[Rfam]
RNA sequence: CUGCGGGGAUGAUCCCACCGAACUCUCUCUUGCCGAUGCCCCGUGGGGAAGCUUUAAAUCAGGCUCUGAGCGGC
Numbered sequence: 001c002u003g004c005g006g007g008g009a010u011g012a013u014c015c016c017a018c019c020g021a022a023c024u025c026u027c028u029c030u031u032g033c034c035g036a037u038g039c040c041c042c043g044u045g046g047g048g049a050a051g052c053u054u055u056a057a058a059u060c061a062g063g064c065u066c067u068g069a070g071c072g073g074c
Stems, first nucleotide, its partner, number of pairs: 001073004
Dot-bracket structure: ((((.................................................................)))).